[Rfam]
RNA sequence: ACUAUUUGAGGUGGAAAAUUUUGUUGCCUUCCACACGCCGAUGGUAUGACAAAGGCGGCAUUGCCGCUUUGAGAGAUGCAGGAGAAGUGUACGCCUGCCGAACAGC
Number, nucleotide and partner (000 for none) at each position: 001a000002c105003u104004a000005u102006u101007u100008g099009a000010g000011g034012u033013g032014g031015a030016a000017a000018a000019u000020u000021u000022u000023g000024u000025u091026g090027c089028c000029u000030u015031c014032c013033a012034c011035a000036c073037g045038c044039c043040g000041a000042u000043g039044g038045u037046a000047u000048g000049a000050c000051a000052a000053a000054g000055g000056c000057g000058g000059c000060a000061u000062u000063g000064c000065c000066g000067c000068u000069u000070u000071g000072a000073g036074a000075g000076a000077u000078g098079c097080a096081g095082g094083a000084g000085a000086a000087g000088u000089g027090u026091a025092c000093g000094c082095c081096u080097g079098c078099c008100g007101a006102a005103c000104a003105g002106c000
Annotation: Rfam assigns this 106-nucleotide RNA sequence to the family "skipping-rope RNA". By type it is a small RNA. The family's consensus secondary structure is taken from published work.